[Rfam]
Nucleotides: 169
Stems, first nucleotide, its partner, number of pairs: 003167008016028003032102002034048004043100002052077002082098001084096003104152003
Number, partner (000 for none) and nucleotide at each position: 001000a002000a003167c004166g005165u006164g007163u008162u009161c010160c011000g012000g013000g014000g015000u016028c017027g018026g019000u020000g021000u022000a023000a024000u025000u026018c027017c028016g029000a030000a031000c032102c033101g034048g035047c036046g037045g038000u039000g040000a041000c042000a043100g044099u045037c046036c047035g048034c049000g050000a051000c052077c053076c054000c055000c056000g057000a058000g059000g060000c061000c062000c063000a064000g065000c066000a067000g068000g069000g070000c071000c072000a073000a074000a075000g076053g077052g078000c079000u080000g081000a082098c083000c084096c085095g086094g087000u088000g089000a090000a091000a092000u093000u094086c095085c096084g097000a098082g099044a100043c101033c102032g103000a104152c105151a106150g107000u108000c109000a110000g111000g112000g113000a114000g115000c116000u117000a118000c119000u120000g121000a122000u123000c124000g125000a126000u127000a128000u129000c130000g131000a132000u133000c134000a135000g136000u137000g138000g139000u140000u141000c142000c143000u144000c145000a146000g147000a148000g149000u150106c151105u152104g153000g154000a155000u156000g157000g158000g159000a160010g161009g162008a163007g164006c165005a166004c167003g168000c169000g
The family of this 169-nucleotide sequence from Tessaracoccus bendigoensis is "FMN riboswitch aptamer (RFN element)". The match comes from Rfam's covariance-model search (80 bits). Gene Ontology term of the family: FMN binding. Pairs were carried over by alignment from the consensus structure, which is taken from published work.